[Rfam]
RNA sequence: UGGAAGUGAUGAAAUAGAGAUAAUUGGAUGUGUCUUUGAAUGAGUGUGUGUGAUAAACGGAAUUUAAACCAAGUGGGGUGGGGUGUGGGGAGUGUGUGUGUGUGUGUGCAUGUAUAGAGGAGGCUUCAAACGGGGGCACUGACAAUGCAGUGCUGAUUCCGGAGUGCAUCUGAGGCAUGUUGUUAAAUUCUGGGGUGCCACAUUGCAACAUUGCCGAUGAUUAAAGCCCAAAAGAAGCCCACCAAGAGAAGCCUGGGCAUCCUAAAUCUCUAACAGGUUCAUUAAUGAAAAUGAUCCUGUGAUCUGAUCUGA
Number, nucleotide and partner (000 for none) at each position: 001u311002g310003g309004a308005a000006g000007u000008g000009a000010u000011g000012a000013a000014a000015u000016a000017g000018a000019g000020a000021u000022a000023a000024u000025u000026g000027g000028a000029u000030g000031u000032g000033u000034c000035u000036u000037u000038g000039a000040a000041u000042g000043a000044g000045u000046g000047u000048g000049u000050g000051u000052g000053a000054u000055a000056a000057a000058c000059g000060g000061a000062a000063u000064u000065u000066a000067a000068a000069c000070c000071a000072a000073g000074u000075g000076g000077g000078g000079u000080g000081g000082g000083g000084u000085g000086u000087g000088g000089g000090g000091a000092g000093u000094g000095u000096g000097u000098g000099u000100g000101u000102g000103u000104g000105u000106g000107u000108g000109c000110a000111u000112g000113u000114a000115u000116a000117g000118a000119g000120g000121a000122g000123g000124c000125u000126u000127c000128a000129a000130a000131c000132g000133g000134g000135g000136g000137c000138a000139c000140u000141g000142a000143c000144a000145a000146u000147g000148c000149a000150g000151u000152g000153c000154u000155g000156a000157u000158u000159c000160c000161g000162g000163a000164g000165u000166g000167c000168a000169u000170c000171u000172g000173a000174g000175g000176c000177a000178u210179g209180u208181u207182g206183u205184u000185a203186a000187a000188u197189u000190c195191u000192g000193g000194g000195g190196u000197g188198c000199c000200a000201c000202a000203u185204u000205g183206c182207a181208a180209c179210a178211u000212u000213g000214c000215c000216g000217a000218u000219g000220a000221u000222u000223a000224a000225a000226g000227c000228c000229c000230a000231a000232a000233a000234g000235a000236a000237g000238c000239c000240c000241a000242c000243c000244a000245a000246g000247a000248g000249a000250a000251g000252c000253c000254u000255g000256g000257g000258c000259a000260u000261c000262c000263u000264a000265a000266a000267u000268c000269u000270c000271u000272a000273a000274c000275a000276g000277g000278u000279u000280c000281a000282u000283u000284a000285a000286u000287g000288a000289a000290a000291a000292u000293g000294a000295u000296c000297c000298u000299g000300u000301g000302a000303u000304c000305u000306g000307a000308u004309c003310u002311g001312a000
Small Cajal body-specific RNA 7: a 312-nucleotide RNA sequence from Calidris pygmaea.